[Rfam]
RNA: FMN riboswitch aptamer (RFN element)
RNA sequence: GUAAAUUCUCAGGGCGGGGUGUAACUCCCCACCGGCGGUGAUAGUACUCGAUUCGAUUUAAUAAUCUAACUCAAGUCUUAAGCCCGCGAGCGCCCAAGCAAGCUUAUAUUGAUAAAUAUGAGCAGCCUGGGGUCAGCAGAUCUGGUGCCUUUUACCCUAUGUAAAACAUCCCAGAGCCGACGGUAAUGAACUUUCUAUUAAUAGCCACCAGCUUAAGUAGUCAGUCUGAGUCCGGAUGAGAGAGAAUGUAA
Numbered sequence: 001g002u003a004a005a006u007u008c009u010c011a012g013g014g015c016g017g018g019g020u021g022u023a024a025c026u027c028c029c030c031a032c033c034g035g036c037g038g039u040g041a042u043a044g045u046a047c048u049c050g051a052u053u054c055g056a057u058u059u060a061a062u063a064a065u066c067u068a069a070c071u072c073a074a075g076u077c078u079u080a081a082g083c084c085c086g087c088g089a090g091c092g093c094c095c096a097a098g099c100a101a102g103c104u105u106a107u108a109u110u111g112a113u114a115a116a117u118a119u120g121a122g123c124a125g126c127c128u129g130g131g132g133u134c135a136g137c138a139g140a141u142c143u144g145g146u147g148c149c150u151u152u153u154a155c156c157c158u159a160u161g162u163a164a165a166a167c168a169u170c171c172c173a174g175a176g177c178c179g180a181c182g183g184u185a186a187u188g189a190a191c192u193u194u195c196u197a198u199u200a201a202u203a204g205c206c207a208c209c210a211g212c213u214u215a216a217g218u219a220g221u222c223a224g225u226c227u228g229a230g231u232c233c234g235g236a237u238g239a240g241a242g243a244g245a246a247u248g249u250a251a
Stems, first nucleotide, its partner, number of pairs: 003249001005247006017029003033179002035087004090137002141175005181234003